[Rfam]
RNA: Small nucleolar RNA SNORA23
RNA sequence: CUCGUAAUGUGUGCAUGGUUUCCAUCUGUGUCUGAUGGCAGCAUCUGUCUGUGUUUUGCAUUCAGAUCUUGCUAUCCACACAAACGUCGUGCAGCCAGAGAAUAAGUUGGGAUCAUAGUACUGGUCUAGUGUGGUCUCUUGACUUCAUCUACCACUGGCCAGCCUCCAAAUUCCCACACAAGA
Numbered sequence: 001c002u003c004g005u006a007a008u009g010u011g012u013g014c015a016u017g018g019u020u021u022c023c024a025u026c027u028g029u030g031u032c033u034g035a036u037g038g039c040a041g042c043a044u045c046u047g048u049c050u051g052u053g054u055u056u057u058g059c060a061u062u063c064a065g066a067u068c069u070u071g072c073u074a075u076c077c078a079c080a081c082a083a084a085c086g087u088c089g090u091g092c093a094g095c096c097a098g099a100g101a102a103u104a105a106g107u108u109g110g111g112a113u114c115a116u117a118g119u120a121c122u123g124g125u126c127u128a129g130u131g132u133g134g135u136c137u138c139u140u141g142a143c144u145u146c147a148u149c150u151a152c153c154a155c156u157g158g159c160c161a162g163c164c165u166c167c168a169a170a171u172u173c174c175c176a177c178a179c180a181a182g183a
Stems, first nucleotide, its partner, number of pairs: 013092004029082003033078002036074006043067005050060003108176005121162006128156004133146002137142001